RNA sequence: GGGAAAUAUUAGCUUAAUCCAUAAAAUGGGAACGGAGGAACCGAUUUUGGGGUGAAUUCUGUGCAUCGCACAGGUAGGGUUUUAACCUUUCGACCCGAACCCGUCAGCUAACUUCGUAAGCUAUAAAGAAAGGGAGG
Number, nucleotide and partner (000 for none) at each position: 001g000002g000003g000004a000005a000006a000007u000008a000009u000010u000011a122012g121013c120014u119015u000016a000017a000018u031019c030020c029021a000022u000023a000024a000025a000026a000027u000028g000029g020030g019031a018032a117033c116034g115035g114036a113037g112038g000039a000040a000041c000042c049043g048044a000045u000046u000047u000048u043049g042050g102051g101052g100053u000054g000055a000056a000057u000058u074059c073060u072061g071062u000063g000064c000065a000066u000067c000068g000069c000070a000071c061072a060073g059074g058075u000076a000077g096078g095079g094080u093081u000082u000083u000084a000085a000086c000087c000088u000089u000090u000091c000092g000093a080094c079095c078096c077097g000098a000099a000100c052101c051102c050103g000104u000105c000106a000107g000108c000109u000110a000111a000112c037113u036114u035115c034116g033117u032118a000119a014120g013121c012122u011123a000124u000125a000126a000127a000128g000129a000130a000131a000132g000133g000134g000135a000136g000137g000
Shown here is a 137-nucleotide RNA sequence from Desulforamulus profundi, a member of the family "c-di-AMP riboswitch aptamer (ydaO/yuaA leader)". Rfam links the family to the GO terms regulation of gene expression and cyclic-di-AMP binding.